[Rfam]
RNA sequence: GCCGCCUUAGCACAGCGGUAGUGCACCGCUUUCGUAAAGCGGGGGUCCGGGGUUCAAAUCCCCGAGGCGGCU
Dot-bracket structure: (((((((..((((.......)))).(((((.......))))).....(((((.......)))))))))))).
This 72-nucleotide sequence from Telmatocola sphagniphila belongs to the Rfam family "tRNA". Rfam 15.1 lists 5,335,975 matches to the family in 14,413 species. The family's RNA type in Rfam is transfer RNA. The base pairs follow the family's consensus structure, which is taken from published work. The source organism's lineage runs through Bacteria, Pseudomonadati, Planctomycetota, Planctomycetia and Telmatocola.